[Rfam]
RNA sequence: AUCUUAUCAAGAGCAGGCGGAGGGACAAGCCCGAUGAAGCCCGGCAACCGACUUAGCUAUAUGCUAGGCACGGUGCUAAUUCUUGCAGCUUAGGCUGAGAGAUAAGAA
Numbered sequence: 001a002u003c004u005u006a007u008c009a010a011g012a013g014c015a016g017g018c019g020g021a022g023g024g025a026c027a028a029g030c031c032c033g034a035u036g037a038a039g040c041c042c043g044g045c046a047a048c049c050g051a052c053u054u055a056g057c058u059a060u061a062u063g064c065u066a067g068g069c070a071c072g073g074u075g076c077u078a079a080u081u082c083u084u085g086c087a088g089c090u091u092a093g094g095c096u097g098a099g100a101g102a103u104a105a106g107a108a
Base pairs, nucleotide, nucleotide: 002107003106004105005104006103007102008101013042016041017040018039022032023031024030026085027084028083029082043077044076045075046074048073049072050069052067053066081100086097087096088095089094
The family of this 108-nucleotide RNA sequence from Bacillaceae bacterium SAS-127 is "SAM riboswitch aptamer (S box leader)". It scores 81 bits against the family's covariance model.